[Rfam]
RNA sequence: AUUCAUGUGGAGCCUGGACCUGUACCGGGUUCUCUUUGUGGUGAUAUGACAACUCAUAACCAUUCCUUAUCACCGGGAGACAACCUGGUAUAGGUCCAGCGACUCUG
Numbered sequence: 001a002u003u004c005a006u007g008u009g010g011a012g013c014c015u016g017g018a019c020c021u022g023u024a025c026c027g028g029g030u031u032c033u034c035u036u037u038g039u040g041g042u043g044a045u046a047u048g049a050c051a052a053c054u055c056a057u058a059a060c061c062a063u064u065c066c067u068u069a070u071c072a073c074c075g076g077g078a079g080a081c082a083a084c085c086u087g088g089u090a091u092a093g094g095u096c097c098a099g100c101g102a103c104u105c106u107g
Base pairs, nucleotide, nucleotide: 016097017096018095019094020093021092022091024089025088026087027086028085029084030083031082033080034079035078036077037076039075041073042072043071044070045069046068

Shown here is a 107-nucleotide sequence from Caenorhabditis briggsae, a member of the family "mir-36 microRNA precursor family". For this family Rfam cites "Patterns of flanking sequence conservation and a characteristic upstream motif for microRNA gene identification" (Ohler et al., RNA, 2004). Rfam links the family to the GO terms RISC complex and miRNA-mediated post-transcriptional gene silencing. Lineage of the source: Eukaryota > Metazoa > Protostomia > Rhabditomorpha > Caenorhabditis.